This 115-nucleotide RNA from Sporomusa termitida belongs to the Rfam family "Molybdenum/Tungsten riboswitch aptamer (Moco RNA motif)". The source organism's lineage runs through Bacteria, Bacillati, Negativicutes, Sporomusaceae and Sporomusa. The base pairs follow the family's consensus structure, which is taken from published work.

Nucleotides: 115
Stems, first nucleotide, its partner, number of pairs: 006106001011101001013099004019051011057082011083092002
Number, partner (000 for none) and nucleotide at each position: 001000a002000u003000g004000a005000a006106g007000a008000g009000c010000g011101a012000g013099u014098u015097c016096c017000g018000a019051g020050u021049c022048a023047u024046c025045a026044u027043u028042u029041c030000c031000a032000g033000u034000u035000c036000a037000g038000g039000g040000g041029g042028a043027a044026g045025u046024g047023a048022u049021g050020a051019c052000c053000g054000u055000a056000a057082g058081g059080g060079u061078g062077u063076g064075a065074g066073a067072a068000g069000u070000a071000a072067u073066u074065u075064u076063c077062a078061u079060g080059c081058c082057u083092g084091c085000c086000u087000u088000u089000g090000a091084g092083c093000a094000a095000a096016g097015g098014a099013a100000g101011u102000c103000c104000u105000u106006c107000c108000g109000g110000g111000g112000g113000a114000c115000u